[Rfam]
RNA sequence: UCGUCAGUAAGGUUAAUCCUUACGUGUUCCUCCUCUUGGAGAACAGUGAAAACAUGAUGAUUGGCGCUCACGUGAUACAUGAUUAACGUUUCUGCAUAAGCAGGAAAGAAAAAAACAAGUUAAAAGAAAAAAAUACAAGUUAAAAUUACAACUAUGUGUUGUUUUUUAUUACAGACAGAA
Numbered sequence: 001u002c003g004u005c006a007g008u009a010a011g012g013u014u015a016a017u018c019c020u021u022a023c024g025u026g027u028u029c030c031u032c033c034u035c036u037u038g039g040a041g042a043a044c045a046g047u048g049a050a051a052a053c054a055u056g057a058u059g060a061u062u063g064g065c066g067c068u069c070a071c072g073u074g075a076u077a078c079a080u081g082a083u084u085a086a087c088g089u090u091u092c093u094g095c096a097u098a099a100g101c102a103g104g105a106a107a108g109a110a111a112a113a114a115a116c117a118a119g120u121u122a123a124a125a126g127a128a129a130a131a132a133a134u135a136c137a138a139g140u141u142a143a144a145a146u147u148a149c150a151a152c153u154a155u156g157u158g159u160u161g162u163u164u165u166u167u168a169u170u171a172c173a174g175a176c177a178g179a180a
Stems, first nucleotide, its partner, number of pairs: 025045002028043001030041004074092002077089002080085001096169005102163002
Rfam assigns this 180-nucleotide sequence from Chrysochloris asiatica to the family "U8 small nucleolar RNA". By type it is a C/D-box small nucleolar RNA. Its family is annotated with nucleolus and RNA processing in the Gene Ontology. NCBI's taxonomy places the organism under Eukaryota, Eumetazoa, Teleostomi, Chrysochlorinae, Chrysochloris. The match comes from Rfam's covariance-model search (77 bits).